RNA: Small nucleolar RNA Z266
RNA sequence: UAAGGCGAGGGUGAUGAUUCAAUUAGAUGUGCGAAUGGAGUUUCUCCAUGUUGAGCUUAAGAACUUAAUUUGGCAAUUAUUAAUCUGACUUCGCCGUC
Dot-bracket structure: .(.(((((((..............................................................................))))))).).
Numbered sequence: 001u002a003a004g005g006c007g008a009g010g011g012u013g014a015u016g017a018u019u020c021a022a023u024u025a026g027a028u029g030u031g032c033g034a035a036u037g038g039a040g041u042u043u044c045u046c047c048a049u050g051u052u053g054a055g056c057u058u059a060a061g062a063a064c065u066u067a068a069u070u071u072g073g074c075a076a077u078u079a080u081u082a083a084u085c086u087g088a089c090u091u092c093g094c095c096g097u098c
Stems, first nucleotide, its partner, number of pairs: 002097001004095007